[Rfam]
RNA sequence: GCGUCAUCAAGAGCAGCGGAGGGACUGGCCCGGUGAAGCUGCGGCAACCUGCCGGAAGGUAAGGUGCCAAUUCCAGCAGGAUUAAACCUGGAAGAUGAAAC
Numbered sequence: 001g002c003g004u005c006a007u008c009a010a011g012a013g014c015a016g017c018g019g020a021g022g023g024a025c026u027g028g029c030c031c032g033g034u035g036a037a038g039c040u041g042c043g044g045c046a047a048c049c050u051g052c053c054g055g056a057a058g059g060u061a062a063g064g065u066g067c068c069a070a071u072u073c074c075a076g077c078a079g080g081a082u083u084a085a086a087c088c089u090g091g092a093a094g095a096u097g098a099a100a101c
Stems, first nucleotide, its partner, number of pairs: 001101001004098005013042005021031003025076004043068004048064002050061004072093001077090004
Dot-bracket structure: (..(((((....(((((...(((.[[[[)))......)))))((((.((((((....)))).))))))...(]]]]((((......))))..))))))..)
RNA: SAM riboswitch aptamer (S box leader)